[Rfam]
RNA sequence: AGAGCUCACAAGUUUGAGGCCACAGCAGAAGCACUUCCAGCACAGCCCUGUCAGAUUCCAACAAAUCUGUGAAUUCUGCA
Number, nucleotide and partner (000 for none) at each position: 001a000002g000003a000004g000005c000006u000007c000008a000009c000010a000011a000012g000013u000014u000015u000016g048017a000018g047019g046020c045021c000022a000023c000024a000025g079026c078027a077028g076029a075030a074031g043032c000033a000034c000035u000036u000037c000038c000039a000040g000041c000042a000043c031044a000045g020046c019047c018048c016049u000050g000051u000052c069053a068054g067055a066056u065057u064058c000059c000060a000061a000062c000063a000064a057065a056066u055067c054068u053069g052070u000071g000072a000073a000074u030075u029076c028077u027078g026079c025080a000

A member of the RNA family "Mammalian CPEB3 ribozyme" from Crocodylus porosus, 80 nucleotides long. The base pairs follow the family's consensus structure, which is taken from published work. A search with the family's covariance model found it, with a score of 39 bits. From the family's description: The mammalian CPEB3 ribozyme is a self cleaving RNA located in the second intron of the CPEB3 gene which belongs to a family of genes regulating messenger RNA polyadenylation. This ribozyme is highly conserved and found only in mammals. The CPEB3 ribozyme is structurally and biochemically related to the human hepatitis delta virus (HDV) ribozyme and the HDV ribozyme is proposed to have arisen from the human transcriptome.